[Rfam]
RNA sequence: UGUUGUAUAGUGUAGUGGUUAUCACCCUGGUUUUUGAUACCAGUAACUCCGGUUCGAAUCCGGAUACGACCU
Numbered sequence: 001u002g003u004u005g006u007a008u009a010g011u012g013u014a015g016u017g018g019u020u021a022u023c024a025c026c027c028u029g030g031u032u033u034u035u036g037a038u039a040c041c042a043g044u045a046a047c048u049c050c051g052g053u054u055c056g057a058a059u060c061c062g063g064a065u066a067c068g069a070c071c072u
Stems, first nucleotide, its partner, number of pairs: 002070006010025003027043005048064005
Notes:
The record is a 72-nucleotide sequence from Rhizoclosmatium globosum, which matches "tRNA" in Rfam. It is annotated as a transfer RNA. The organism belongs to Rhizoclosmatium, within Eukaryota.